[Rfam]
RNA: MIR159 microRNA precursor family
RNA sequence: UUAUAGAGAAAGGAGCUCUCUUUAGUCUAGCCCGAGGCAGUUUUAGGGCUAAUUACUCAGCUACCGACUCGUUGGUUCAAGAUCACAUCAAAUUACAGAGGAGAGGGAUCUGUUUUUGAUCAAACGAUGCAAGAGCUGCAUUCAGUUAUUGUUGUCACGUCUUGGACUGAAGGGAGCUCCUUCUAUUCCACUG
Numbered sequence: 001u002u003a004u005a006g007a008g009a010a011a012g013g014a015g016c017u018c019u020c021u022u023u024a025g026u027c028u029a030g031c032c033c034g035a036g037g038c039a040g041u042u043u044u045a046g047g048g049c050u051a052a053u054u055a056c057u058c059a060g061c062u063a064c065c066g067a068c069u070c071g072u073u074g075g076u077u078c079a080a081g082a083u084c085a086c087a088u089c090a091a092a093u094u095a096c097a098g099a100g101g102a103g104a105g106g107g108a109u110c111u112g113u114u115u116u117u118g119a120u121c122a123a124a125c126g127a128u129g130c131a132a133g134a135g136c137u138g139c140a141u142u143c144a145g146u147u148a149u150u151g152u153u154g155u156c157a158c159g160u161c162u163u164g165g166a167c168u169g170a171a172g173g174g175a176g177c178u179c180c181u182u183c184u185a186u187u188c189c190a191c192u193g
Base pairs, nucleotide, nucleotide: 013179014178015177016176017175018174019173020172023169024168025167026166027165028164029163036156061135062134066130070126071125072124073123078118